This 115-nucleotide RNA sequence from Xylanimonas allomyrinae belongs to the Rfam family "SAM (S-adenosyl methionine) riboswitch aptamer". From the family's description: SAM-IV is a mRNA element that regulates gene expression via direct sensing of S-adenosylmethionine (SAM or AdoMet). SAM-IV riboswitches share conserved nucleotide positions with the previously described SAM-I riboswitches sequence analysis and molecular recognition experiments suggest that SAM-I and SAM-IV riboswitches share similar ligand binding sites, but have different scaffolds. The literature on the family includes a 2008 paper in RNA by Weinberg et al., "The aptamer core of SAM-IV riboswitches mimics the ligand-binding site of SAM-I riboswitches". The base pairs follow the family's consensus structure, which is taken from published work.

RNA sequence: GGUCAAGAGCGAUCAGCGAUACGCCCUCCGCGUGCUGGUCCGGCAACCGCGCACUCGCGCACGGUGCCCCUGGAGGAAGACCGGCCCGUCACGACCGUGACGGGAAGCGCGAAAG
Numbered sequence: 001g002g003u004c005a006a007g008a009g010c011g012a013u014c015a016g017c018g019a020u021a022c023g024c025c026c027u028c029c030g031c032g033u034g035c036u037g038g039u040c041c042g043g044c045a046a047c048c049g050c051g052c053a054c055u056c057g058c059g060c061a062c063g064g065u066g067c068c069c070c071u072g073g074a075g076g077a078a079g080a081c082c083g084g085c086c087c088g089u090c091a092c093g094a095c096c097g098u099g100a101c102g103g104g105a106a107g108c109g110c111g112a113a114a115g
Stems, first nucleotide, its partner, number of pairs: 001082004009041001012039006022032002042068003047064003051060002085104008
Source information:
The match comes from Rfam's covariance-model search (76 bits).